[Rfam]
RNA sequence: AUAAUGAUACUCCCAUACAGCCACAGUCCGAACGAGAUAGAAACGUCGCAGGCAAUGGGUAUGGCUACAUGAGAACCAUGUAGAGGUGAAAAUCCUGUGA
Number, nucleotide and partner (000 for none) at each position: 001a000002u000003a000004a000005u000006g000007a000008u000009a000010c000011u000012c097013c064014c063015a062016u061017a060018c059019a000020g000021c000022c000023a000024c000025a000026g000027u000028c000029c000030g000031a000032a000033c000034g000035a000036g000037a000038u000039a000040g000041a000042a000043a000044c000045g000046u000047c000048g000049c000050a000051g000052g000053c000054a000055a000056u000057g000058g000059g018060u017061a016062u015063g014064g013065c083066u082067a081068c000069a079070u078071g077072a000073g000074a000075a000076c000077c071078a070079u069080g000081u067082a066083g065084a096085g095086g094087u000088g000089a000090a000091a000092a000093u000094c086095c085096u084097g012098u000099g000100a000
RNA: pemK RNA
Organism: Enterococcus aquimarinus